[Rfam]
RNA: Makes More Granules Regulator RNA (mmgR)
RNA sequence: UGUCUAUGCCCUCCUUGGGCGUUUCCUCCCUAGACUUCGACCGCGUUGUGCGAACAGCGCGGUUUUUUUUGAGAGGC
Numbered sequence: 001u002g003u004c005u006a007u008g009c010c011c012u013c014c015u016u017g018g019g020c021g022u023u024u025c026c027u028c029c030c031u032a033g034a035c036u037u038c039g040a041c042c043g044c045g046u047u048g049u050g051c052g053a054a055c056a057g058c059g060c061g062g063u064u065u066u067u068u069u070u071g072a073g074a075g076g077c
Stems, first nucleotide, its partner, number of pairs: 008020004041062009